[Rfam]
About this RNA
The family of this 97-nucleotide RNA sequence from Solicola gregarius is "Bacterial small signal recognition particle RNA". Pairs were carried over by alignment from the consensus structure, which is taken from published work. The family's RNA type in Rfam is non-coding RNA gene. The match comes from Rfam's covariance-model search (63 bits).
RNA sequence: GGCAGCCCCUCGCGCGGCGGCAUCUUGCCCAACUCCCCCAGGGCCGGAAGGCAGCAAGGGUAAGCAGGCUCUACCGGGUGCGCGAGGGGUCUUUCAU
Numbered sequence: 001g002g003c004a005g006c007c008c009c010u011c012g013c014g015c016g017g018c019g020g021c022a023u024c025u026u027g028c029c030c031a032a033c034u035c036c037c038c039c040a041g042g043g044c045c046g047g048a049a050g051g052c053a054g055c056a057a058g059g060g061u062a063a064g065c066a067g068g069c070u071c072u073a074c075c076g077g078g079u080g081c082g083c084g085a086g087g088g089g090u091c092u093u094u095c096a097u
Stems, first nucleotide, its partner, number of pairs: 005090010015078001018076003022072001024068005035060003043052003